The record is an 85-nucleotide sequence from Jatropha curcas, which matches "Small nucleolar RNA R44/J54/Z268 family" in Rfam. The family has 29 seed sequences and 1,168 matches in Rfam 15.1. The base pairs follow the family's consensus structure, which was predicted with PFOLD. It scores 71 bits against the family's covariance model. Its family is annotated with RNA processing and nucleolus in the Gene Ontology. Clan: SNORD74 clan. NCBI's taxonomy places the organism under Eukaryota, Streptophyta, Gunneridae, Jatropheae, Jatropha.

RNA sequence: UGUGCAAAUGAUGAUAAAGAAAGACAGGGACAUCAGAAAUCUGUUCGAGCAUGAUGAUUGUCUGUGGGAAUCUCUCUGAUGCAAA
Numbered sequence: 001u002g003u004g005c006a007a008a009u010g011a012u013g014a015u016a017a018a019g020a021a022a023g024a025c026a027g028g029g030a031c032a033u034c035a036g037a038a039a040u041c042u043g044u045u046c047g048a049g050c051a052u053g054a055u056g057a058u059u060g061u062c063u064g065u066g067g068g069a070a071u072c073u074c075u076c077u078g079a080u081g082c083a084a085a
Stems, first nucleotide, its partner, number of pairs: 003083004